Rfam assigns this 160-nucleotide RNA from Microbispora sp. ATCC PTA-5024 to the family "c-di-AMP riboswitch aptamer (ydaO/yuaA leader)". The source organism's lineage runs through Bacteria, Bacillati, Actinomycetes, Streptosporangiales and Microbispora.

[Rfam]
RNA sequence: CGCCGGUGAUCGCCGAAUCCGUGCAGCAAGGAGGCACGGAACCGGGGAACCAGUCGACCUUCGCCCGAAGGUCUGGGGUGAAUCGGCGCGCCAUGCGCCGUAGGGCGUCUUCCCUGCCCGAAUCCGUCAGCUAACCCGGUAGGCGCAAGCGGAAGACUCG
Numbered sequence: 001c002g003c004c005g006g007u008g009a010u011c012g013c014c015g016a017a018u019c020c021g022u023g024c025a026g027c028a029a030g031g032a033g034g035c036a037c038g039g040a041a042c043c044g045g046g047g048a049a050c051c052a053g054u055c056g057a058c059c060u061u062c063g064c065c066c067g068a069a070g071g072u073c074u075g076g077g078g079u080g081a082a083u084c085g086g087c088g089c090g091c092c093a094u095g096c097g098c099c100g101u102a103g104g105g106c107g108u109c110u111u112c113c114c115u116g117c118c119c120g121a122a123u124c125c126g127u128c129a130g131c132u133a134a135c136c137c138g139g140u141a142g143g144c145g146c147a148a149g150c151g152g153a154a155g156a157c158u159c160g
Stems, first nucleotide, its partner, number of pairs: 011145004018040007041140006051075002076125003084100004103119004